[Rfam]
RNA sequence: GUGCCCUUUUAAGGUUUAUGCGGUGCCUUAAGAGGCUAACACAGAAGGGUAAAGGAAGUCUCCAUAAAACCCAGGGAAGAGACUAAAACUCUCUGGAUCCUGUCUGGAGUCACAGCU
Numbered sequence: 001g002u003g004c005c006c007u008u009u010u011a012a013g014g015u016u017u018a019u020g021c022g023g024u025g026c027c028u029u030a031a032g033a034g035g036c037u038a039a040c041a042c043a044g045a046a047g048g049g050u051a052a053a054g055g056a057a058g059u060c061u062c063c064a065u066a067a068a069a070c071c072c073a074g075g076g077a078a079g080a081g082a083c084u085a086a087a088a089c090u091c092u093c094u095g096g097a098u099c100c101u102g103u104c105u106g107g108a109g110u111c112a113c114a115g116c117u
Base pairs, nucleotide, nucleotide: 002051003050004049005048006047007046008045009044010043014040015039016038019035021032058111060109061108062107063106064105071096072095073094074093075092079091080090081089
The record is a 117-nucleotide RNA sequence from Crocuta crocuta, which matches "Small nucleolar RNA SNORA26" in Rfam. Rfam classes the family as an H/ACA-box small nucleolar RNA. Gene Ontology terms of the family: RNA processing and nucleolus. On this family, see Huttenhofer et al., EMBO J 2001: "RNomics: an experimental approach that identifies 201 candidates for novel, small, non-messenger RNAs in mouse". The snoRNA HBI-6 belong to the H/ACA family of snoRNAs, guiding the pseudouridylation of position U4522 if the 28S rRNA. HBI-6 is the human orthologue of mouse MBI-6 snoRNA. The match comes from Rfam's covariance-model search (120 bits).